[Rfam]
Source information: The record is a 63-nucleotide RNA sequence from Erinaceus europaeus, which matches "Selenocysteine insertion sequence 1" in Rfam. Rfam's curators write: The incorporation of selenocysteine into a protein sequence is directed by an in-frame UGA codon (usually a stop codon) within the coding region of the mRNA. Selenoprotein mRNAs contain a conserved secondary structure in the 3' UTR that is required for the distinction of UGA stop from UGA selenocysteine. Pairs were carried over by alignment from the consensus structure, which is taken from published work. The family's RNA type in Rfam is cis-regulatory element. A reference for the family is Walczak et al. (1996), "A novel RNA structural motif in the selenocysteine insertion element of eukaryotic selenoprotein mRNAs", RNA. Gene Ontology term of the family: selenocysteine incorporation.
RNA sequence: UAUUUGCUUAUGAUGGUCACAGCUUAAAGUAUACACAGCUGUGACUUGAUUGGAAAGAAAAUA
Numbered sequence: 001u002a003u004u005u006g007c008u009u010a011u012g013a014u015g016g017u018c019a020c021a022g023c024u025u026a027a028a029g030u031a032u033a034c035a036c037a038g039c040u041g042u043g044a045c046u047u048g049a050u051u052g053g054a055a056a057g058a059a060a061a062u063a
Base pairs, nucleotide, nucleotide: 001063002062003061004060005059015046016045017044018043019042020041021040022039023038024037029036030035